[Rfam]
RNA sequence: AUUGCGGGCCGGGCCCCUCUGGCGACGCCAUCUGUGGCGUCGUGAUGUCGGACCGCAUCG
Numbered sequence: 001a002u003u004g005c006g007g008g009c010c011g012g013g014c015c016c017c018u019c020u021g022g023c024g025a026c027g028c029c030a031u032c033u034g035u036g037g038c039g040u041c042g043u044g045a046u047g048u049c050g051g052a053c054c055g056c057a058u059c060g
Base pairs, nucleotide, nucleotide: 006054007053009051010050011049012048022043023042024041025040026039027038028037029036

Shown here is a 60-nucleotide RNA sequence from Bauldia litoralis, a member of the family "terC RNA". It scores 66 bits against the family's covariance model. Lineage of the source: Bacteria > Pseudomonadati > Pseudomonadota > Alphaproteobacteria > Bauldia.